[Rfam]
RNA sequence: GGCUUUUUUCGCGCAAGCGGAGCUCGACCGCACACUCGGACAGUGAUCGACUACGUUCGUACUCAUGCGCCUCGGUUCGGGGCCGAGCCGAUCCUGACCGUACUUUCCGAGCACGGUAUCGGGGUCGCCCCG
Numbered sequence: 001g002g003c004u005u006u007u008u009u010c011g012c013g014c015a016a017g018c019g020g021a022g023c024u025c026g027a028c029c030g031c032a033c034a035c036u037c038g039g040a041c042a043g044u045g046a047u048c049g050a051c052u053a054c055g056u057u058c059g060u061a062c063u064c065a066u067g068c069g070c071c072u073c074g075g076u077u078c079g080g081g082g083c084c085g086a087g088c089c090g091a092u093c094c095u096g097a098c099c100g101u102a103c104u105u106u107c108c109g110a111g112c113a114c115g116g117u118a119u120c121g122g123g124g125u126c127g128c129c130c131c132g
Stems, first nucleotide, its partner, number of pairs: 017031004078132005089127002092124006